[Rfam]
RNA: Small nucleolar RNA R12
Organism: Papaver somniferum
RNA sequence: GUUGGGAUGAUGAAAAAAAUCGAAAUCAGCACAUUGAUUUUUAUUAAUAUGAUCAUACAACCAGCUACUUCUGACUAAC
Numbered sequence: 001g002u003u004g005g006g007a008u009g010a011u012g013a014a015a016a017a018a019a020u021c022g023a024a025a026u027c028a029g030c031a032c033a034u035u036g037a038u039u040u041u042u043a044u045u046a047a048u049a050u051g052a053u054c055a056u057a058c059a060a061c062c063a064g065c066u067a068c069u070u071c072u073g074a075c076u077a078a079c
Stems, first nucleotide, its partner, number of pairs: 001079005